[Rfam]
RNA sequence: UUUUCAUUGGUUUUUAUCAGCAUCCUGUUCUGAUAAAAGUUAGUGAAAAACCUUCACUAACGUAGCUUCUCGCAGUGCUUGACACCGAGUGGGUUACGUUUUUUU
Numbered sequence: 001u002u003u004u005c006a007u008u009g010g011u012u013u014u015u016a017u018c019a020g021c022a023u024c025c026u027g028u029u030c031u032g033a034u035a036a037a038a039g040u041u042a043g044u045g046a047a048a049a050a051c052c053u054u055c056a057c058u059a060a061c062g063u064a065g066c067u068u069c070u071c072g073c074a075g076u077g078c079u080u081g082a083c084a085c086c087g088a089g090u091g092g093g094u095u096a097c098g099u100u101u102u103u104u105u
Stems, first nucleotide, its partner, number of pairs: 002048018059100010069089004075085003
RNA: 23S methyl RNA motif
Organism: Enterococcus columbae